[Rfam]
RNA: Lysine riboswitch aptamer
Organism: bacterium 1xD42-67
RNA sequence: CGAACAGAUAGAGGUCGCGGCUUACAUCAGUAAGCAUGGUCAGGGUGCCGGUCCCCCGUUCCAGCCAUGCCGAAAGGGAGAGCCGCCGAAGGGUCUCCUGUACCGGCGGGGCAGGCCCUGGUCGUCUGGCGAACAGCCUGCCGACUGUCAUCAGCGGGAGCUGAUGGAGCGCUGUCUGUUUU
Numbered sequence: 001c002g003a004a005c006a007g008a009u010a011g012a013g014g015u016c017g018c019g020g021c022u023u024a025c026a027u028c029a030g031u032a033a034g035c036a037u038g039g040u041c042a043g044g045g046u047g048c049c050g051g052u053c054c055c056c057c058g059u060u061c062c063a064g065c066c067a068u069g070c071c072g073a074a075a076g077g078g079a080g081a082g083c084c085g086c087c088g089a090a091g092g093g094u095c096u097c098c099u100g101u102a103c104c105g106g107c108g109g110g111g112c113a114g115g116c117c118c119u120g121g122u123c124g125u126c127u128g129g130c131g132a133a134c135a136g137c138c139u140g141c142c143g144a145c146u147g148u149c150a151u152c153a154g155c156g157g158g159a160g161c162u163g164a165u166g167g168a169g170c171g172c173u174g175u176c177u178g179u180u181u182u
Base pairs, nucleotide, nucleotide: 006177007176008175009174010173011172017086018085019084020083021082022081023080025078034070035069036068037067038066039065040064090119091118092117093116094115095114096113098111099110101108120146121145122144123143124142126140128138129137130136148167149166150165151164152163153162154161